The family of this 120-nucleotide sequence from Rhizobiales bacterium GAS113 is "Group II catalytic intron D1-D4-2". For this family Rfam cites "The ins and outs of group II introns" (Bonen and Vogel, Trends Genet, 2001). Rfam links the family to the GO term Group II intron splicing. Rfam 15.1 lists 1,231 matches to the family in 625 species. From the family's description: Group II introns are found in rRNA, tRNA and mRNA of organelles in fungi, plants and protists, and also in mRNA in bacteria. It scores 97 bits against the family's covariance model.
RNA sequence: GAAGGAGGGCCCCUUCGAGGUCGGCAGUCAGGUUCUGGCCUCAAACCACUGCAAGCUGCUGUCGUUAAGAGCGACGGUAGUGAGCGUUGCAGUCAACGUCGGGACCAGAUCCCGGCGGGU
Numbered sequence: 001g002a003a004g005g006a007g008g009g010c011c012c013c014u015u016c017g018a019g020g021u022c023g024g025c026a027g028u029c030a031g032g033u034u035c036u037g038g039c040c041u042c043a044a045a046c047c048a049c050u051g052c053a054a055g056c057u058g059c060u061g062u063c064g065u066u067a068a069g070a071g072c073g074a075c076g077g078u079a080g081u082g083a084g085c086g087u088u089g090c091a092g093u094c095a096a097c098g099u100c101g102g103g104a105c106c107a108g109a110u111c112c113c114g115g116c117g118g119g120u
Stems, first nucleotide, its partner, number of pairs: 001016005017042006024035001026033001047119001049092006055081002058078003062074004098116006